[Rfam]
RNA: Bacterial small signal recognition particle RNA
Organism: Paracoccus isoporae
Nucleotides: 097
Base pairs, nucleotide, nucleotide: 003092004091005090006089007088009085010084011083012081013080014079017075018074019073020072021071022070024066025065026064027063034059035058036057037056042051043050044049
Number, partner (000 for none) and nucleotide at each position: 001000g002000a003092g004091a005090g006089g007088c008000u009085g010084g011083c012081g013080c014079g015000g016000g017075c018074g019073a020072a021071c022070g023000c024066u025065u026064c027063g028000c029000c030000a031000a032000c033000c034059c035058g036057g037056u038000c039000a040000g041000g042051u043050c044049c045000g046000g047000a048000a049044g050043g051042a052000a053000g054000c055000a056037g057036c058035c059034g060000c061000a062000a063027c064026g065025a066024a067000u068000u069000c070022c071021g072020u073019u074018c075017g076000g077000g078000u079014c080013g081012c082000u083011g084010u085009c086000c087000a088007g089006u090005c091004u092003c093000u094000c095000a096000c097000c